[Rfam]
RNA sequence: AAGACUAUACUUUCAGGGAUCAUUUCUAUAGUUGUUAACUAGGACAUGUGUUUCUAAAGUGUGGAGUCUUCCAAACCACGAUGAUGAUUCUUGAUACUCUUUUCUGAGCCUGAAUCAGAUGCAGAGAAAUGAUUUAAUUCAUAUUCUCUGUAUCUUUGAUGAAUGUUCCUUGUUGUCUCUUACAACAUAGGAGGAAAAUAGUAUGAUCUGAGUGGU
Number, nucleotide and partner (000 for none) at each position: 001a000002a040003g039004a000005c000006u000007a000008u000009a032010c031011u030012u000013u000014c000015a027016g026017g025018g024019a000020u000021c000022a000023u000024u018025u017026c016027u015028a000029u000030a011031g010032u009033u000034g000035u000036u000037a000038a000039c003040u002041a000042g000043g000044a000045c000046a000047u000048g000049u064050g000051u000052u000053u000054c061055u000056a000057a000058a000059g000060u000061g054062u000063g000064g049065a000066g000067u000068c000069u000070u000071c000072c000073a000074a000075a216076c215077c214078a213079c212080g000081a000082u000083g000084a000085u000086g000087a000088u000089u000090c000091u000092u000093g000094a204095u203096a202097c201098u200099c000100u198101u197102u196103u195104c194105u193106g000107a000108g166109c165110c000111u000112g000113a000114a000115u000116c000117a000118g154119a153120u152121g151122c000123a000124g148125a147126g146127a145128a000129a142130u141131g140132a139133u000134u000135u000136a000137a000138u000139u132140c131141a130142u129143a000144u000145u127146c126147u125148c124149u000150g000151u121152a120153u119154c118155u000156u000157u000158g000159a000160u000161g000162a000163a000164u000165g109166u108167u000168c000169c190170u189171u187172g186173u185174u184175g183176u182177c000178u000179c000180u000181u000182a176183c175184a174185a173186c172187a171188u000189a170190g169191g000192a000193g105194g104195a103196a102197a101198a100199u000200a098201g097202u096203a095204u094205g000206a000207u000208c000209u000210g000211a000212g079213u078214g077215g076216u075
A member of the RNA family "Small nucleolar RNA U3", 216 nucleotides long.
By type it is a C/D-box small nucleolar RNA.
Gene Ontology terms of the family: nucleolus and RNA processing.
The family is grouped with related families in Rfam's "U3 clan".
About the family: Small nucleolar RNAs (snoRNAs) are involved in the processing and modification of rRNA in the nucleolus.